[Rfam]
RNA: Small nucleolar RNA R44/J54/Z268 family
Organism: Lathyrus oleraceus
RNA sequence: UUUGCAAAUGAUGAUAAAACAGACAGGGACAUCAGAUCUCCUAAUUAGAGAAAAUGAUGACUUGUCGAUGGGAAUCUCUCUGAUGCAUU
Dot-bracket structure: ..((((.............................................................................))))..